The family of this 101-nucleotide sequence from Aminivibrio pyruvatiphilus is "SAM riboswitch aptamer (S box leader)".
RNA sequence: CUCUUAUCGAGAGAGGUGGAGGGACUGGCCCGAUGAAGCCCGGCAACCUGCCUGAAAAGGUAUGGUGCCAAUACCAGCAGCCGCAGGCUGAGUGAUAAGAG
Dot-bracket structure: ((((((((....(.(((...(((.[[[[)))......))))((((.((..(.......)....))))))...(]]]](((((...)))))..)))))))))

From the family's description: The SAM riboswitch is found upstream of a number of genes which code for proteins involved in methionine or cysteine biosynthesis in Gram-positive bacteria. The SAM riboswitch acts at the level of transcription termination control. The predicted structure consists of a complex stem-loop region followed by a single stem loop terminator region. An alternative and mutually exclusive form involves bases in the 3' segment of helix 1 with those in the 5' region of helix 5 to form a structure termed the anti-terminator form.